[Rfam]
RNA sequence: AAAUACAAUUAUGAGAGGACUGAUGGAUGGACAAUGAUUAACUAAUCUAUAUUUUUAUUUGAAAUGAAUAACUUCAAACUACAAAAUAUAGGGUUAGUCUAUCCAUUUUUAUAAAUCAGUUUACACUUUAUUUGUCAUGAUUCCAAUGGCAAAAAAGAGCUUAUUUACUAUAAGUGAAAGACUAAUCCUUCCAAUUACAAAUUGGGAGGAUUUUUUA
Number, nucleotide and partner (000 for none) at each position: 001a000002a000003a000004u000005a000006c000007a000008a000009u000010u000011a000012u000013g000014a000015g000016a110017g109018g108019a000020c000021u000022g000023a000024u105025g104026g103027a102028u000029g000030g099031a098032c097033a000034a000035u000036g000037a000038u000039u000040a000041a000042c000043u096044a095045a094046u093047c092048u091049a089050u088051a087052u086053u085054u084055u000056u000057a000058u078059u077060u076061g075062a074063a073064a000065u071066g000067a000068a000069u000070a000071a065072c000073u063074u062075c061076a060077a059078a058079c000080u000081a000082c000083a000084a054085a053086a052087u051088a050089u049090a000091g048092g047093g046094u045095u044096a043097g032098u031099c030100u000101a000102u027103c026104c025105a024106u000107u000108u018109u017110u016111a000112u000113a000114a000115a000116u000117c000118a166119g165120u000121u000122u000123a000124c159125a000126c157127u156128u155129u154130a000131u000132u000133u000134g000135u000136c000137a000138u000139g000140a000141u000142u000143c000144c000145a000146a000147u000148g000149g000150c000151a000152a000153a000154a129155a128156a127157g126158a000159g124160c000161u000162u000163a000164u000165u119166u118167a000168c000169u000170a000171u000172a000173a000174g000175u000176g000177a000178a000179a000180g000181a000182c000183u000184a212185a211186u210187c209188c208189u207190u206191c205192c204193a203194a202195u000196u000197a000198c000199a000200a000201a000202u194203u193204g192205g191206g190207a189208g188209g187210a186211u185212u184213u000214u000215u000216u000217a000
Description
A member of the RNA family "Bacillus sRNA ncr1575" from Brevibacillus laterosporus, 217 nucleotides long. Taxonomically the source falls in Brevibacillus laterosporus (Bacteria, Bacilli, Paenibacillaceae, Brevibacillus). It is one of the family's seed sequences. By type it is a small RNA.